[Rfam]
RNA sequence: GGCUUCCUGGUGCUUACCACAGUGUUCUUACACUGAGUGUAUAGAAAGAGGAGACAAAGUAGACCUACCCCAUAUACACCUCAUCCCAGGCCCUGUACCUGGUCGGUAUCGUGAAUGGGGAGACAUGG
Number, nucleotide and partner (000 for none) at each position: 001g000002g055003c000004u053005u052006c051007c050008u049009g000010g000011u000012g000013c000014u000015u000016a000017c000018c000019a000020c039021a038022g033023u032024g031025u030026u000027c000028u000029u000030a025031c024032a023033c022034u000035g000036a000037g000038u021039g020040u000041a000042u000043a000044g000045a000046a000047a000048g000049a008050g007051g006052a005053g004054a000055c002056a000057a000058a000059g000060u000061a000062g000063a000064c000065c000066u000067a000068c120069c119070c118071c117072a116073u115074a000075u000076a000077c000078a000079c000080c000081u000082c106083a000084u000085c000086c102087c101088a100089g099090g098091c000092c000093c000094u000095g000096u000097a000098c090099c089100u088101g087102g086103u000104c000105g000106g082107u000108a000109u000110c000111g000112u000113g000114a000115a073116u072117g071118g070119g069120g068121a000122g000123a000124c000125a000126u000127g000128g000

This 128-nucleotide RNA sequence from Castor canadensis belongs to the Rfam family "Small nucleolar RNA SNORA51". A search with the family's covariance model found it, with a score of 122 bits. Rfam's curators write: ACA51 is a member of the H/ACA class of snoRNA that guide the sites of modification of uridines to pseudouridines. Taxonomically the source falls in Castor (Eukaryota, Deuterostomia, Teleostomi, Euteleostomi). Rfam classes the family as an H/ACA-box small nucleolar RNA.